[Rfam]
RNA sequence: UCCAGCUCGGAUAUCAUCAUAUACUGUAAGUUGGAAUCAGACACUACAGUAUAGAUGAUGUACUAUCUGG
Dot-bracket structure: ....(...(.((((((((.(((((((((.(((.......)))..))))))))))))))))).)...)...
This 70-nucleotide RNA from Ophiophagus hannah belongs to the Rfam family "mir-144 microRNA precursor family". The sequence is in the family's curated seed alignment. The source organism's lineage runs through Eukaryota, Sauropsida, Toxicofera, Elapidae and Ophiophagus. Rfam links the family to the GO terms RISC complex and miRNA-mediated post-transcriptional gene silencing.